RNA: Betaproteobacteria toxic small RNA
Organism: Burkholderia sp. Leaf177
RNA sequence: UGUCUCCUCCAUGUCUCCACUGAUAUGGAUUCAGCCCGCCAAUCAUGCGCGGGCUUUUUUUU
Numbered sequence: 001u002g003u004c005u006c007c008u009c010c011a012u013g014u015c016u017c018c019a020c021u022g023a024u025a026u027g028g029a030u031u032c033a034g035c036c037c038g039c040c041a042a043u044c045a046u047g048c049g050c051g052g053g054c055u056u057u058u059u060u061u062u
Stems, first nucleotide, its partner, number of pairs: 008029008033055007
Dot-bracket structure: .......((((((((......))))))))...(((((((.........))))))).......